[Rfam]
Nucleotides: 119
Stems, first nucleotide, its partner, number of pairs: 001117001003115001005113003011107016028090003035086002046075001048073001
Number, partner (000 for none) and nucleotide at each position: 001117g002000c003115a004000c005113a006112u007111c008000u009000c010000a011107a012106g013105u014104u015103u016102g017101u018100g019099c020098g021097u022096g023095a024094a025093u026092c027000g028090a029089a030088c031000c032000c033000g034000g035086u036085c037000a038000u039000c040000a041000u042000g043000g044000c045000c046075g047000u048073c049000a050000a051000a052000u053000g054000a055000u056000u057000u058000c059000u060000g061000c062000g063000u064000a065000a066000a067000u068000c069000a070000c071000g072000a073048g074000g075046c076000u077000a078000a079000u080000c081000a082000g083000a084000c085036g086035g087000u088030g089029u090028u091000a092026g093025a094024u095023u096022c097021a098020c099019g100018c101017a102016c103015a104014a105013a106012c107011u108000c109000g110000u111007g112006a113005u114000c115003u116000c117001u118000c119000u
Shown here is a 119-nucleotide sequence from Rhamnella rubrinervis, a member of the family "MIR403 microRNA precursor family". The family has 13 seed sequences and 215 matches in Rfam 15.1. On this family, see Mica et al., BMC Genomics 2009: "High throughput approaches reveal splicing of primary microRNA transcripts and tissue specific expression of mature microRNAs in Vitis vinifera". The match comes from Rfam's covariance-model search (89 bits). The source organism's lineage runs through Eukaryota, Embryophyta, Gunneridae, Rhamneae and Rhamnella.